[Rfam]
RNA sequence: UGAAGAAUAUGAUGAAAGUUGUAUAUUUGUGAUUCAUAUGAUCGAUAGAAAUUUCAACUCGCUCGCUACGUUCUUUCUGAUUCUUAC
Dot-bracket structure: ...((((.........................................................................))))...
RNA: Small nucleolar RNA R32/R81/Z41
Organism: Brassica carinata